[Rfam]
RNA sequence: GAGAAGCUGAAAUUUAUGUUCUACUCAACCCGUCUACUAAGCCUACUACUUAACGCAUCUCUCUUGCGCGGUAUGUUGGUGGACGGAAAUCAGAACUGAUUCAGCCAUCAAGAUUAACAAGCCCGCGCAAAUGCGCGGUUUUUUUU
Numbered sequence: 001g002a003g004a005a006g007c008u009g010a011a012a013u014u015u016a017u018g019u020u021c022u023a024c025u026c027a028a029c030c031c032g033u034c035u036a037c038u039a040a041g042c043c044u045a046c047u048a049c050u051u052a053a054c055g056c057a058u059c060u061c062u063c064u065u066g067c068g069c070g071g072u073a074u075g076u077u078g079g080u081g082g083a084c085g086g087a088a089a090u091c092a093g094a095a096c097u098g099a100u101u102c103a104g105c106c107a108u109c110a111a112g113a114u115u116a117a118c119a120a121g122c123c124c125g126c127g128c129a130a131a132u133g134c135g136c137g138g139u140u141u142u143u144u145u146u
Base pairs, nucleotide, nucleotide: 006105007104008103009102010101014099015098016097018096019095020094021093030086031085032084033083034082035081036080037079038078039077047073048072049071050070054068055067056066057065119142120141121140123138124137125136126135127134128133
Rfam assigns this 146-nucleotide sequence from Yersinia pestis to the family "Leucine operon leader". The source organism's lineage runs through Bacteria, Pseudomonadati, Enterobacterales, Yersinia pseudotuberculosis complex and Yersinia pestis. Its family is annotated with leucine biosynthetic process in the Gene Ontology. Rfam's curators write: At least 6 amino acid operons are known to be regulated by attenuation. In each a leader sequence of 150-200 bp is found upstream of the first gene in the operon. This leader sequence can assume two different secondary structures known as the terminator and the anti-terminator structure. Rfam's curators put it in the seed alignment.